[Rfam]
RNA sequence: UAUUCGUAAUCGCUGAAUCUCCGCGAAGGAGAUCGGGGGAACCAAUCGCGGCGAGCAUUCGUCGCGCGGGGUGAAUCGGCGGCGCAGCCAUGCCAUGCGUCUGCCGUAGGGCGACUCUAAUCGCCCGAAUCCGUCAGCUAACCUCGUAAGCGUCGUUAGAGAGGGUGA
Number, nucleotide and partner (000 for none) at each position: 001u000002a000003u000004u000005c000006g000007u000008a000009a000010u000011c152012g151013c150014u149015g000016a000017a000018u032019c031020u030021c029022c028023g000024c000025g000026a000027a000028g022029g021030a020031g019032a018033u000034c146035g145036g144037g143038g142039g000040a000041a000042c000043c068044a000045a000046u000047c000048g000049c000050g000051g000052c000053g000054a000055g000056c000057a000058u000059u000060c000061g000062u000063c000064g000065c000066g000067c000068g043069g132070g131071g130072u000073g000074a000075a000076u000077c106078g105079g104080c103081g102082g101083c000084g000085c000086a000087g000088c000089c000090a000091u000092g000093c000094c000095a000096u000097g000098c000099g000100u000101c082102u081103g080104c079105c078106g077107u000108a000109g126110g125111g124112c123113g000114a000115c000116u000117c000118u000119a000120a000121u000122c000123g112124c111125c110126c109127g000128a000129a000130u071131c070132c069133g000134u000135c000136a000137g000138c000139u000140a000141a000142c038143c037144u036145c035146g034147u000148a000149a014150g013151c012152g011153u000154c000155g000156u000157u000158a000159g000160a000161g000162a000163g000164g000165g000166u000167g000168a000
Rfam assigns this 168-nucleotide RNA sequence from Cohnella fermenti to the family "c-di-AMP riboswitch aptamer (ydaO/yuaA leader)". It scores 94 bits against the family's covariance model. The organism belongs to Cohnella, within Bacteria.